RT-5 RNA: a 103-nucleotide RNA. It is one of the family's seed sequences.
RNA sequence: UGACGCCUAUAACUGGAUGAAGCAUAUUAUACAAAAUGGUUUUGUAGGCAACCUUAAUAUGUAUAGUCUUGUCUUUAUCGUUACACGAUAAUCAAUUUAUUUC
Numbered sequence: 001u002g003a004c005g006c007c008u009a010u011a012a013c014u015g016g017a018u019g020a021a022g023c024a025u026a027u028u029a030u031a032c033a034a035a036a037u038g039g040u041u042u043u044g045u046a047g048g049c050a051a052c053c054u055u056a057a058u059a060u061g062u063a064u065a066g067u068c069u070u071g072u073c074u075u076u077a078u079c080g081u082u083a084c085a086c087g088a089u090a091a092u093c094a095a096u097u098u099a100u101u102u103c
Base pairs, nucleotide, nucleotide: 005049006048007047008046009045010044011043015069016068018066022062023061024060025059026058027057028056029055038053039052040051041050077089078088079087080086081085
Pairs were carried over by alignment from the consensus structure, which is taken from published work.